[Rfam]
RNA sequence: AGCUGUAACGGCUCAAGAAGCGGAACACCCCUCACUCCCGCACCAUCCCUUACCCCAAUCCGGCCACGCGUGCCCAGUUCGAACUCGGUGGUGGUCGCCCACUCGCUUCGGUAACGAGCGAUCUGCUGCGUUGCGACCCUAAGCUUUCUAUGGAAUUCUUCAGCCGAGCAAUCGGGCAGAGAACCGUAGACCAUGGAGUGGCGGCGCUGGAUUACAUGUGUUGCUGGCGGGAUGGCUUGUAGGGGAAUGAUGGGGGGUGUGACGUUUUUU
Numbered sequence: 001a002g003c004u005g006u007a008a009c010g011g012c013u014c015a016a017g018a019a020g021c022g023g024a025a026c027a028c029c030c031c032u033c034a035c036u037c038c039c040g041c042a043c044c045a046u047c048c049c050u051u052a053c054c055c056c057a058a059u060c061c062g063g064c065c066a067c068g069c070g071u072g073c074c075c076a077g078u079u080c081g082a083a084c085u086c087g088g089u090g091g092u093g094g095u096c097g098c099c100c101a102c103u104c105g106c107u108u109c110g111g112u113a114a115c116g117a118g119c120g121a122u123c124u125g126c127u128g129c130g131u132u133g134c135g136a137c138c139c140u141a142a143g144c145u146u147u148c149u150a151u152g153g154a155a156u157u158c159u160u161c162a163g164c165c166g167a168g169c170a171a172u173c174g175g176g177c178a179g180a181g182a183a184c185c186g187u188a189g190a191c192c193a194u195g196g197a198g199u200g201g202c203g204g205c206g207c208u209g210g211a212u213u214a215c216a217u218g219u220g221u222u223g224c225u226g227g228c229g230g231g232a233u234g235g236c237u238u239g240u241a242g243g244g245g246a247a248u249g250a251u252g253g254g255g256g257g258u259g260u261g262a263c264g265u266u267u268u269u270u
Stems, first nucleotide, its partner, number of pairs: 001013003017268006025260007037244003040240003043235007064223001066221007074210005079204003083199004088194004093131001096128002099125001101122001103121005109116002139143001147190007157182004165174003
Shown here is a 270-nucleotide RNA sequence from Salinomyces thailandicus, a member of the family "Fungal signal recognition particle RNA".
By type it is a non-coding RNA gene.
The family is grouped with related families in Rfam's "SRP clan".